This 81-nucleotide sequence belongs to the Rfam family "dinG RNA". The sequence is in the family's curated seed alignment. By type it is a small RNA.

RNA sequence: AAGGAUACUUCUGCAAAAAUCAGCUCGCCGGAAGGCGGGAUAUGUUGUUUCAGGCUGAAAACCAUGUCUGUUACACCAUAU
Numbered sequence: 001a002a003g004g005a006u007a008c009u010u011c012u013g014c015a016a017a018a019a020u021c022a023g024c025u026c027g028c029c030g031g032a033a034g035g036c037g038g039g040a041u042a043u044g045u046u047g048u049u050u051c052a053g054g055c056u057g058a059a060a061a062c063c064a065u066g067u068c069u070g071u072u073a074c075a076c077c078a079u080a081u
Base pairs, nucleotide, nucleotide: 011023012022013021015020024039025038026037027036028035029034040081041080042079043078044077047074048073051070052069053068054067055066